[Rfam]
RNA sequence: UAACCAGCCAAUUAAUCUGCUUCUGCAGAAAUUUAGAAACAGCUGGCAAUUGUGAUGCCAUUUUAUGAGCUUUAAGGACACCUGAGGUCAUUGUGGUCCCUCCAAAUGGUUAUAAUA
Number, nucleotide and partner (000 for none) at each position: 001u000002a000003a000004c046005c045006a044007g043008c000009c000010a000011a000012u000013u000014a000015a000016u029017c028018u027019g026020c025021u000022u000023c000024u000025g020026c019027a018028g017029a016030a000031a000032u000033u000034u000035a000036g000037a000038a000039a000040c000041a000042g000043c007044u006045g005046g004047c000048a000049a000050u000051u000052g000053u000054g000055a000056u000057g110058c109059c108060a107061u000062u000063u000064u000065a000066u000067g000068a000069g097070c096071u095072u000073u093074a092075a091076g000077g089078a088079c087080a000081c000082c000083u000084g000085a000086g000087g079088u078089c077090a000091u075092u074093g073094u000095g071096g070097u069098c000099c000100c000101u000102c000103c000104a000105a000106a000107u060108g059109g058110u057111u000112a000113u000114a000115a000116u000117a000
Source information: Shown here is a 117-nucleotide RNA from Jaculus jaculus, a member of the family "Small nucleolar RNA SNORA33". Rfam's curators write: ACA33 is a member of the H/ACA class of snoRNA that guide the sites of modification of uridines to pseudouridines. NCBI's taxonomy places the organism under Eukaryota, Eumetazoa, Dipnotetrapodomorpha, Mammalia, Jaculus.